[Rfam]
RNA sequence: AUAGCAAGUCUGAAGCCACAGCAGAAGUGAUCAUGGUGUAGCCUGUCAGCUUCUAAUGAAUGUGUGAAUUCUGCU
Numbered sequence: 001a002u003a004g005c006a007a008g009u010c011u012g013a014a015g016c017c018a019c020a021g022c023a024g025a026a027g028u029g030a031u032c033a034u035g036g037u038g039u040a041g042c043c044u045g046u047c048a049g050c051u052u053c054u055a056a057u058g059a060a061u062g063u064g065u066g067a068a069u070u071c072u073g074c075u
Base pairs, nucleotide, nucleotide: 012043015042016041020075021074022073023072024071025070026069027039028038029037047064048063051060052059053058
Shown here is a 75-nucleotide RNA sequence from Alligator sinensis, a member of the family "Mammalian CPEB3 ribozyme". The source organism's lineage runs through Eukaryota, Craniata, Amniota, Archelosauria and Alligator. About the family: The mammalian CPEB3 ribozyme is a self cleaving RNA located in the second intron of the CPEB3 gene which belongs to a family of genes regulating messenger RNA polyadenylation. It scores 40 bits against the family's covariance model. Gene Ontology term of the family: RNA nuclease activity.